Annotation:
Nuclear RNase P: a 362-nucleotide RNA from Eurystomus gularis. Taxonomically the source falls in Eurystomus (Eukaryota, Opisthokonta, Bilateria, Sauropsida). By type it is a ribozyme.
RNA sequence: UCCGGGGGAAGCUCACCGCCGAGGCCACUCACUGGGUGUAACGUCACCCCGCGCCCCGCCUCGGGGAAGGUCUGAGGGAAGGGCCGCUCCGCGGCUCCAGCAGAGCCCCGCCCGCGAUCGCAGGGGCGGGUGAGCCACCAGCAAGGGGGGGCGCCGCGUCGCUCCUUUCAGGCGGGCCCGGCCUGGGCAGGAGAAGCCGCGCCGGCUGCGCGGGGGGCCGGGUAAAGCCGCCUCCGCGUCAGCCCCGGCGGAUGCUCGUGGCCCCGCGGUGCUUUGAGACAGACUCACGGCCGGCAGCGCUGAGUCCAAUGGGUGAGGUGGGGCAGGGCCCCAUAACCCAAUUCAGACUACUCUCCCCUGGA
Numbered sequence: 001u002c003c004g005g006g007g008g009a010a011g012c013u014c015a016c017c018g019c020c021g022a023g024g025c026c027a028c029u030c031a032c033u034g035g036g037u038g039u040a041a042c043g044u045c046a047c048c049c050c051g052c053g054c055c056c057c058g059c060c061u062c063g064g065g066g067a068a069g070g071u072c073u074g075a076g077g078g079a080a081g082g083g084c085c086g087c088u089c090c091g092c093g094g095c096u097c098c099a100g101c102a103g104a105g106c107c108c109c110g111c112c113c114g115c116g117a118u119c120g121c122a123g124g125g126g127c128g129g130g131u132g133a134g135c136c137a138c139c140a141g142c143a144a145g146g147g148g149g150g151g152c153g154c155c156g157c158g159u160c161g162c163u164c165c166u167u168u169c170a171g172g173c174g175g176g177c178c179c180g181g182c183c184u185g186g187g188c189a190g191g192a193g194a195a196g197c198c199g200c201g202c203c204g205g206c207u208g209c210g211c212g213g214g215g216g217g218c219c220g221g222g223u224a225a226a227g228c229c230g231c232c233u234c235c236g237c238g239u240c241a242g243c244c245c246c247g248g249c250g251g252a253u254g255c256u257c258g259u260g261g262c263c264c265c266g267c268g269g270u271g272c273u274u275u276g277a278g279a280c281a282g283a284c285u286c287a288c289g290g291c292c293g294g295c296a297g298c299g300c301u302g303a304g305u306c307c308a309a310u311g312g313g314u315g316a317g318g319u320g321g322g323g324c325a326g327g328g329c330c331c332c333a334u335a336a337c338c339c340a341a342u343u344c345a346g347a348c349u350a351c352u353c354u355c356c357c358c359u360g361g362a
Stems, first nucleotide, its partner, number of pairs: 001362004007356003012317006020063005034049005072346005082292004093107005108129006130288005136282001150273009318334007